[Rfam]
RNA sequence: CGGGGGCAUAGGUGGACUCCCCGUCAGGCUGUGGCCCAAGUUCCGC
Numbered sequence: 001c002g003g004g005g006g007c008a009u010a011g012g013u014g015g016a017c018u019c020c021c022c023g024u025c026a027g028g029c030u031g032u033g034g035c036c037c038a039a040g041u042u043c044c045g046c
Stems, first nucleotide, its partner, number of pairs: 001023006012046005027036003
chrB-b RNA: a 46-nucleotide RNA from Mesorhizobium sp. L-8-10. By type it is a cis-regulatory element.